A member of the RNA family "azaaromatic riboswitch aptamer (yjdF RNA)" from Paenibacillus albidus, 107 nucleotides long. A search with the family's covariance model found it, with a score of 81 bits.
[Rfam]
RNA sequence: AUAAAGGAGUGUAAAAACACAGAUCGGUUGGUAGUCCGGUCGCACAGGGUUAGCCCUAGUGUCAGUGACCUUCCCCCCUCGGGAUGUCCAUCACUCCAGUAUAAACA
Numbered sequence: 001a002u003a004a005a006g007g008a009g010u011g012u013a014a015a016a017a018c019a020c021a022g023a024u025c026g027g028u029u030g031g032u033a034g035u036c037c038g039g040u041c042g043c044a045c046a047g048g049g050u051u052a053g054c055c056c057u058a059g060u061g062u063c064a065g066u067g068a069c070c071u072u073c074c075c076c077c078c079u080c081g082g083g084a085u086g087u088c089c090a091u092c093a094c095u096c097c098a099g100u101a102u103a104a105a106c107a
Stems, first nucleotide, its partner, number of pairs: 006097006022041006042062004047057003072084004